[Rfam]
RNA sequence: CUCUGUUUAUGAUGAUCGUUUUAUAACAUUGGGAAUCUCUCUGAAUAAGAAUGAAAGAGAUCUAUGUACUGAGACAGGU
Numbered sequence: 001c002u003c004u005g006u007u008u009a010u011g012a013u014g015a016u017c018g019u020u021u022u023a024u025a026a027c028a029u030u031g032g033g034a035a036u037c038u039c040u041c042u043g044a045a046u047a048a049g050a051a052u053g054a055a056a057g058a059g060a061u062c063u064a065u066g067u068a069c070u071g072a073g074a075c076a077g078g079u
Base pairs, nucleotide, nucleotide: 002078003077004076005075006074007073

Rfam assigns this 79-nucleotide sequence from Triplophysa tibetana to the family "Small nucleolar RNA SNORD79". For this family Rfam cites "Purified box C/D snoRNPs are able to reproduce site-specific 2'-O-methylation of target RNA in vitro" (Galardi et al., Mol Cell Biol, 2002). A search with the family's covariance model found it, with a score of 65 bits. The base pairs follow the family's consensus structure, which was predicted with PFOLD. The organism belongs to Triplophysa, within Eukaryota. Rfam's curators write: snoRNA U79 or Z22 is found in intron 7 of the gas5 gene in humans and is also present in mice.